[Rfam]
RNA: ALIL pseudoknot
RNA sequence: UGCAUAUUUUGCCCAGGCGGAGCUCGAGCGCCCACUGAAGCGAUGAUCUCCUUCAUCGAUGCAAACCGCUCGGUGCUCGGGGUCGAGCCGAUCUGCAGACUUUUGCCGAUUGCCAAG
Numbered sequence: 001u002g003c004a005u006a007u008u009u010u011g012c013c014c015a016g017g018c019g020g021a022g023c024u025c026g027a028g029c030g031c032c033c034a035c036u037g038a039a040g041c042g043a044u045g046a047u048c049u050c051c052u053u054c055a056u057c058g059a060u061g062c063a064a065a066c067c068g069c070u071c072g073g074u075g076c077u078c079g080g081g082g083u084c085g086a087g088c089c090g091a092u093c094u095g096c097a098g099a100c101u102u103u104u105g106c107c108g109a110u111u112g113c114c115a116a117g
Stems, first nucleotide, its partner, number of pairs: 016032004078117001081114002089112002092109002095106004